[Rfam]
RNA sequence: CCAGAUGGCCGGACGGCCGCUUUCGGGGGGAACCUCGGGGGAGGAAAGUCCGGGCUCCACGGAAGUACGGUGCCGGAUAACGUCCGGCGGGGGUGACCCUAGGGAAAGUGCCACAGAAAGCAAACCGCCGGCCCGAUUCCCCGGAAUUCGGCCGGUAAGGGUGAAAGGGUGCGGUAAGAGCGCACCGCGCGACCGGCAACGGAAGCGGCACGGCAAACCCCACCGGGAGCAAGACCAAAUAGGGACGGCAGCCUUUCCUUCGGGAAAGCCAAACGCACUUCCGCGUAGCCGUCCGGGUCGGUCGCGUGAGGCGUCCGGUAACGGGCGUCCCAGAUGAAUGGUCGUCACCCGUGGGAAACCAUGGGUACAAAACCCGGCUUACAGGCCGUCUGGCGCA
Numbered sequence: 001c002c003a004g005a006u007g008g009c010c011g012g013a014c015g016g017c018c019g020c021u022u023u024c025g026g027g028g029g030g031a032a033c034c035u036c037g038g039g040g041g042a043g044g045a046a047a048g049u050c051c052g053g054g055c056u057c058c059a060c061g062g063a064a065g066u067a068c069g070g071u072g073c074c075g076g077a078u079a080a081c082g083u084c085c086g087g088c089g090g091g092g093g094u095g096a097c098c099c100u101a102g103g104g105a106a107a108g109u110g111c112c113a114c115a116g117a118a119a120g121c122a123a124a125c126c127g128c129c130g131g132c133c134c135g136a137u138u139c140c141c142c143g144g145a146a147u148u149c150g151g152c153c154g155g156u157a158a159g160g161g162u163g164a165a166a167g168g169g170u171g172c173g174g175u176a177a178g179a180g181c182g183c184a185c186c187g188c189g190c191g192a193c194c195g196g197c198a199a200c201g202g203a204a205g206c207g208g209c210a211c212g213g214c215a216a217a218c219c220c221c222a223c224c225g226g227g228a229g230c231a232a233g234a235c236c237a238a239a240u241a242g243g244g245a246c247g248g249c250a251g252c253c254u255u256u257c258c259u260u261c262g263g264g265a266a267a268g269c270c271a272a273a274c275g276c277a278c279u280u281c282c283g284c285g286u287a288g289c290c291g292u293c294c295g296g297g298u299c300g301g302u303c304g305c306g307u308g309a310g311g312c313g314u315c316c317g318g319u320a321a322c323g324g325g326c327g328u329c330c331c332a333g334a335u336g337a338a339u340g341g342u343c344g345u346c347a348c349c350c351g352u353g354g355g356a357a358a359c360c361a362u363g364g365g366u367a368c369a370a371a372a373c374c375c376g377g378c379u380u381a382c383a384g385g386c387c388g389u390c391u392g393g394c395g396c397a
Stems, first nucleotide, its partner, number of pairs: 001393010011382001012346007020041009046380003050377005055229004064280002068225005073087005088102001089100004103220002108218002110214003125160002127156007135148005168186006187209001188207003193202003233303004243294006273286004310329008